[Rfam]
RNA sequence: UCAGGAGUUGGUGGCCAUGGAAGGUGCAUUCAUAUUGUGGCCAAACAGGCUGAUUGUCAGCCUGUGAAUCCUUCC
Numbered sequence: 001u002c003a004g005g006a007g008u009u010g011g012u013g014g015c016c017a018u019g020g021a022a023g024g025u026g027c028a029u030u031c032a033u034a035u036u037g038u039g040g041c042c043a044a045a046c047a048g049g050c051u052g053a054u055u056g057u058c059a060g061c062c063u064g065u066g067a068a069u070c071c072u073u074c075c
Stems, first nucleotide, its partner, number of pairs: 013042004019075006026038003046064007
RNA: Mammalian CPEB3 ribozyme
Organism: Scyliorhinus torazame